Annotation
Shown here is a 61-nucleotide part of an RNA from Chlamydomonas schloesseri, a member of the family "Archaeal small subunit ribosomal RNA". A search with the family's covariance model found it, with a score of 867 bits. Gene Ontology terms of the family: ribosome and structural constituent of ribosome. The source organism's lineage runs through Eukaryota, Viridiplantae, Chlorophyta, Chlamydomonadales and Chlamydomonas. Clan: SSU clan. The base pairs follow the family's consensus structure, which is taken from published work.
RNA sequence: UGUAAACUAUGGAGACUAAGUGCUGCCGCAAGCAGUGCUGUAGCUAACGCGUUAAGUCUCC
Numbered sequence: 001u002g003u004a005a006a007c008u009a010u011g012g013a014g015a016c017u018a019a020g021u022g023c024u025g026c027c028g029c030a031a032g033c034a035g036u037g038c039u040g041u042a043g044c045u046a047a048c049g050c051g052u053u054a055a056g057u058c059u060c061c
Stems, first nucleotide, its partner, number of pairs: 011061006019039008043050002